About this RNA:
This 52-nucleotide RNA sequence belongs to the Rfam family "serC leader". Its family is annotated with regulation of gene expression in the Gene Ontology. The literature on the family includes a 2005 paper in Genome Biol by Corbino et al., "Evidence for a second class of S-adenosylmethionine riboswitches and other regulatory RNA motifs in alpha-proteobacteria". The pairing is the family consensus, mapped onto this sequence.
RNA sequence: CAGUGGGACACCCUUCCCCAACGAAGGGCAUUUAUCUGUAAGGAUAGCAUCA
Dot-bracket structure: ..........((((((......))))))...((((((....)))))).....
Rfam classes the family as a cis-regulatory leader.
This family is a putative regulatory RNA structure that is found upstream of the serC-serA operon in some alpha-proteobacteria. The final stem of the structure overlaps the ribosome binding site of the serC reading frame.